Shown here is a 99-nucleotide RNA from Alkaliphilus oremlandii, a member of the family "THF (Tetrahydrofolate) riboswitch aptamer". Rfam links the family to the GO term tetrahydrofolate metabolic process. It is one of the family's seed sequences. From the family's description: Tetrahydrofolate (THF) riboswitch was first reported for Ames et al. as an RNA motif in 5' untranslated (5'-UTR)regions of folate transport and biosynthesis genes in Firmicutes genomes. The family has 101 seed sequences and 747 matches in Rfam 15.1.
[Rfam]
RNA sequence: CAGAGUAGAUAUUGCGCGUUAAGUGUUGAAGGAUGGGAAGUUGCCUUCAAACGAAAAAUAGUACCAUGUACUAUUUGCGGUGCAAUAUCGCAUCCGCUG
Numbered sequence: 001c002a003g004a005g006u007a008g009a010u011a012u013u014g015c016g017c018g019u020u021a022a023g024u025g026u027u028g029a030a031g032g033a034u035g036g037g038a039a040g041u042u043g044c045c046u047u048c049a050a051a052c053g054a055a056a057a058a059u060a061g062u063a064c065c066a067u068g069u070a071c072u073a074u075u076u077g078c079g080g081u082g083c084a085a086u087a088u089c090g091c092a093u094c095c096g097c098u099g
Stems, first nucleotide, its partner, number of pairs: 001099003008089009017079003023052002026050007036095003040091001056076008